[Rfam]
RNA sequence: CGACGUCGCGCGGGAGAGUCCCCACCCCGGGUGGGGCGCCGAAGGAGCAACCCCUCCCCGGAAUCUCUCAGGCACAGCUACCGCCGACGAAG
Numbered sequence: 001c002g003a004c005g006u007c008g009c010g011c012g013g014g015a016g017a018g019u020c021c022c023c024a025c026c027c028c029g030g031g032u033g034g035g036g037c038g039c040c041g042a043a044g045g046a047g048c049a050a051c052c053c054c055u056c057c058c059c060g061g062a063a064u065c066u067c068u069c070a071g072g073c074a075c076a077g078c079u080a081c082c083g084c085c086g087a088c089g090a091a092g
Stems, first nucleotide, its partner, number of pairs: 005088004010084004020036004038073003041069002045067003051061002

The family of this 92-nucleotide sequence from Saccharothrix syringae is "Glycine riboswitch aptamer". NCBI's taxonomy places the organism under Bacteria, Bacillati, Actinomycetes, Pseudonocardiaceae, Saccharothrix. The match comes from Rfam's covariance-model search (61 bits). The pairing is the family consensus, mapped onto this sequence.